[Rfam]
RNA sequence: AAUAGGAGAAUGACAAAUCAUAUUUUCAUCCUAAUUUUUAGCUUUUUUCCUCCAUAAAAAAAUCAAGUCCAACUAAAAAUGCUAAAAAUCAGGAGGAAAAAUCUAAUUUGUCAUUCUCCUAUU
Number, nucleotide and partner (000 for none) at each position: 001a123002a122003u121004a120005g119006g118007a117008g116009a115010a114011u113012g112013a111014c110015a109016a108017a107018u106019c000020a104021u000022a102023u100024u099025u098026u097027c096028a000029u094030c093031c092032u091033a000034a089035u088036u087037u086038u085039u000040a083041g082042c000043u000044u079045u078046u077047u076048u000049c000050c000051u000052c000053c000054a000055u000056a000057a000058a000059a000060a000061a000062a000063u000064c000065a000066a000067g000068u000069c000070c000071a000072a000073c000074u000075a000076a047077a046078a045079a044080u000081g000082c041083u040084a000085a038086a037087a036088a035089u034090c000091a032092g031093g030094a029095g000096g027097a026098a025099a024100a023101a000102u022103c000104u020105a000106a018107u017108u016109u015110g014111u013112c012113a011114u010115u009116c008117u007118c006119c005120u004121a003122u002123u001
MIR7504 microRNA precursor family: a 123-nucleotide RNA from Gossypium trilobum. NCBI's taxonomy places the organism under Eukaryota, Viridiplantae, Streptophyta, Magnoliopsida, Gossypium. The match comes from Rfam's covariance-model search (102 bits). The base pairs follow the family's consensus structure, which was predicted with RNAalifold. Gene Ontology terms of the family: miRNA-mediated post-transcriptional gene silencing and RISC complex.